[Rfam]
RNA sequence: GGUCAGUGAUGUAAUCUGGCAUGUAUUAUCUGACUUCAGAGCUGUAGAAGUCUUUAGAAUGAUACUGAGACCUA
Numbered sequence: 001g002g003u004c005a006g007u008g009a010u011g012u013a014a015u016c017u018g019g020c021a022u023g024u025a026u027u028a029u030c031u032g033a034c035u036u037c038a039g040a041g042c043u044g045u046a047g048a049a050g051u052c053u054u055u056a057g058a059a060u061g062a063u064a065c066u067g068a069g070a071c072c073u074a
Base pairs, nucleotide, nucleotide: 001072002071003070004069
RNA: Small nucleolar RNA SNORD45